[Rfam]
The family of this 101-nucleotide sequence from Oncorhynchus kisutch is "Vault RNA". A search with the family's covariance model found it, with a score of 54 bits.
RNA sequence: ACGCUGGUGUAGCUCAGUGGUUACUUCGAACAUUUUCAAUAUCAGAAACAUUCUGUACCUCUGCAAAGGGGUUCGAACCGAGAGCGCUGUCAAGUGUUUUA
Number, nucleotide and partner (000 for none) at each position: 001a000002c096003g095004c094005u093006g000007g091008u000009g000010u000011a000012g085013c084014u083015c082016a000017g000018u080019g079020g078021u000022u000023a000024c000025u077026u076027c075028g074029a073030a072031c071032a000033u000034u000035u000036u000037c000038a000039a000040u000041a000042u000043c000044a000045g000046a000047a000048a000049c000050a000051u000052u000053c000054u000055g000056u000057a000058c000059c000060u000061c000062u000063g000064c000065a000066a000067a000068g000069g000070g000071g031072u030073u029074c028075g027076a026077a025078c020079c019080g018081a000082g015083a014084g013085c012086g000087c000088u000089g000090u000091c007092a000093a005094g004095u003096g002097u000098u000099u000100u000101a000